[Rfam]
RNA sequence: UUUCUAAAAUCGCUGAAACCUAAGGUACGGGGGAACCAUUCUUGAACGGAUUGCUUGCUAAUCCGCGGGGUGAAUCCUUUUAUAGGUAGGGCUACUCAUGGCCCGAAUCCGACAGCUAACCUCGUAAGCGUUAUAUGAGAAGGAAG
Numbered sequence: 001u002u003u004c005u006a007a008a009a010u011c012g013c014u015g016a017a018a019c020c021u022a023a024g025g026u027a028c029g030g031g032g033g034a035a036c037c038a039u040u041c042u043u044g045a046a047c048g049g050a051u052u053g054c055u056u057g058c059u060a061a062u063c064c065g066c067g068g069g070g071u072g073a074a075u076c077c078u079u080u081u082a083u084a085g086g087u088a089g090g091g092c093u094a095c096u097c098a099u100g101g102c103c104c105g106a107a108u109c110c111g112a113c114a115g116c117u118a119a120c121c122u123c124g125u126a127a128g129c130g131u132u133a134u135a136u137g138a139g140a141a142g143g144a145a146g
Base pairs, nucleotide, nucleotide: 011130012129013128014127018026019025020024027125028124029123030122031121032120037067068110069109070108076086077085078084089104090103091102092101

A member of the RNA family "c-di-AMP riboswitch aptamer (ydaO/yuaA leader)" from Pullulanibacillus camelliae, 146 nucleotides long. From the family's description: This family represents a conserved RNA structure found upstream of the ydaO and yuaA genes in Bacillus subtilis and related genes in other bacteria. It scores 97 bits against the family's covariance model.